The family of this 96-nucleotide RNA from Cannabis sativa is "Small nucleolar RNA Z157/R69/R10". The match comes from Rfam's covariance-model search (68 bits). The family's consensus secondary structure was predicted with PFOLD. The literature on the family includes a 2003 paper in Nucleic Acids Res by Chen et al., "The high diversity of snoRNAs in plants: identification and comparative study of 120 snoRNA genes from Oryza sativa". Taxonomically the source falls in Cannabis (Eukaryota, Streptophytina, Tracheophyta, Spermatophyta). By type it is a C/D-box small nucleolar RNA.
RNA sequence: AAGAGUGUGGUGAUGAUACAAUUUUGUGGACUAGAGUUUCUGAUCUCGGAAUUACUUAAAAUCUGAUUACAAACCCUUGGCUGUCUGAGCAUAUUU
Numbered sequence: 001a002a003g004a005g006u007g008u009g010g011u012g013a014u015g016a017u018a019c020a021a022u023u024u025u026g027u028g029g030a031c032u033a034g035a036g037u038u039u040c041u042g043a044u045c046u047c048g049g050a051a052u053u054a055c056u057u058a059a060a061a062u063c064u065g066a067u068u069a070c071a072a073a074c075c076c077u078u079g080g081c082u083g084u085c086u087g088a089g090c091a092u093a094u095u096u
Stems, first nucleotide, its partner, number of pairs: 001096003005092004039066002044061001046059001048057002